[Rfam]
RNA sequence: GGCGAUAAACGGUAUUUGGAAUAAGCAUUGCGGACCCGGGGGCAGUGCCCGGCGUCUCCACCAAUCAAACCACCAGGGAUCGUAUGGUGGUGGCAUGGGGACGAAACAGUCUCGACGCGUGUGGUAAAGACUUACCUUUUGCCCGGCAUUGUACCGCCGUUAUCGGGCUAUAUCACAAGUGCCAACGAUAAUGGUCGCGAGACCAUGGCGCUCGCUGCCUAA
Numbered sequence: 001g002g003c004g005a006u007a008a009a010c011g012g013u014a015u016u017u018g019g020a021a022u023a024a025g026c027a028u029u030g031c032g033g034a035c036c037c038g039g040g041g042g043c044a045g046u047g048c049c050c051g052g053c054g055u056c057u058c059c060a061c062c063a064a065u066c067a068a069a070c071c072a073c074c075a076g077g078g079a080u081c082g083u084a085u086g087g088u089g090g091u092g093g094c095a096u097g098g099g100g101a102c103g104a105a106a107c108a109g110u111c112u113c114g115a116c117g118c119g120u121g122u123g124g125u126a127a128a129g130a131c132u133u134a135c136c137u138u139u140u141g142c143c144c145g146g147c148a149u150u151g152u153a154c155c156g157c158c159g160u161u162a163u164c165g166g167g168c169u170a171u172a173u174c175a176c177a178a179g180u181g182c183c184a185a186c187g188a189u190a191a192u193g194g195u196c197g198c199g200a201g202a203c204c205a206u207g208g209c210g211c212u213c214g215c216u217g218c219c220u221a222a
Stems, first nucleotide, its partner, number of pairs: 001143005014133001017130001026121003030118003036052005053103007144159004
RNA: permuted transfer-messenger RNA
Organism: Teichococcus wenyumeiae